The record is a 100-nucleotide sequence from Sporomusa sphaeroides, which matches "Pyrrolysine insertion sequence mtbB" in Rfam. The base pairs follow the family's consensus structure, which was predicted with WAR. A reference for the family is Theil Have et al. (2013), "Effects of using coding potential, sequence conservation and mRNA structure conservation for predicting pyrroly-sine containing genes", BMC Bioinformatics. Rfam links the family to the GO term pyrrolysine incorporation. The organism belongs to Sporomusa sphaeroides, within Bacteria.

[Rfam]
RNA sequence: UAGAUAGGCGUAGGUGAUUGUUAUGGUAUGCCUAUCAAUCAUGGAGUCGCAGCCGGGAUGAGUGGAAUCAGGACCUCCGGAGAUCUGGUGGCCCGGGUUC
Numbered sequence: 001u002a003g004a005u006a007g008g009c010g011u012a013g014g015u016g017a018u019u020g021u022u023a024u025g026g027u028a029u030g031c032c033u034a035u036c037a038a039u040c041a042u043g044g045a046g047u048c049g050c051a052g053c054c055g056g057g058a059u060g061a062g063u064g065g066a067a068u069c070a071g072g073a074c075c076u077c078c079g080g081a082g083a084u085c086u087g088g089u090g091g092c093c094c095g096g097g098u099u100c
Base pairs, nucleotide, nucleotide: 010035011034012033013032014031015030016029017027018026019025074091075090077088079086080085